[Rfam]
RNA sequence: CCUUGACGUAAAGUAGCAGCACAUAAUGGUUUGUGGGUUACACAGAGGUGCAGGCCAUACUGUGCUGCCGCCAAAACACAAGG
Numbered sequence: 001c002c003u004u005g006a007c008g009u010a011a012a013g014u015a016g017c018a019g020c021a022c023a024u025a026a027u028g029g030u031u032u033g034u035g036g037g038u039u040a041c042a043c044a045g046a047g048g049u050g051c052a053g054g055c056c057a058u059a060c061u062g063u064g065c066u067g068c069c070g071c072c073a074a075a076a077c078a079c080a081a082g083g
Base pairs, nucleotide, nucleotide: 001083002082003081004080005079013071014070016068017067018066019065020064021063022062023061026058027057028056029055030054031053032052033051034050035049
RNA: mir-15 microRNA precursor family